A member of the RNA family "RAGATH-18 RNA", 71 nucleotides long.
[Rfam]
RNA sequence: CCUGUGGAGUGUUAUAUCAAAUGUUAGUAGUAUAUCGUAAGGUUACGAGGACAGACACGUUGAAACAGGAA
Numbered sequence: 001c002c003u004g005u006g007g008a009g010u011g012u013u014a015u016a017u018c019a020a021a022u023g024u025u026a027g028u029a030g031u032a033u034a035u036c037g038u039a040a041g042g043u044u045a046c047g048a049g050g051a052c053a054g055a056c057a058c059g060u061u062g063a064a065a066c067a068g069g070a071a
Stems, first nucleotide, its partner, number of pairs: 001069005009058005022053003030046003035042002
By type it is a small RNA. Rfam describes the family as follows. Actinobacteria, Firmicutes, Fusobacteria, Thermotogae (1 example). The sequence is in the family's curated seed alignment. The family's consensus secondary structure is taken from published work.